[Rfam]
RNA sequence: GUUCUUUCCCUCUCCCCAAGCCCCGCCUGCCAGCUGAUGGGUGCUGGGGGGGUUCCCCCACCCCAGUGCCCAUCAGCUGGCAGGCGGGGCUUGGGGGGAGGGGAAAAUGUUUU
Numbered sequence: 001g002u003u004c005u006u007u008c009c010c011u012c013u014c015c016c017c018a019a020g021c022c023c024c025g026c027c028u029g030c031c032a033g034c035u036g037a038u039g040g041g042u043g044c045u046g047g048g049g050g051g052g053u054u055c056c057c058c059c060a061c062c063c064c065a066g067u068g069c070c071c072a073u074c075a076g077c078u079g080g081c082a083g084g085c086g087g088g089g090c091u092u093g094g095g096g097g098g099a100g101g102g103g104a105a106a107a108u109g110u111u112u113u
Stems, first nucleotide, its partner, number of pairs: 010100007018092002021089014038072012
RNA: mraW RNA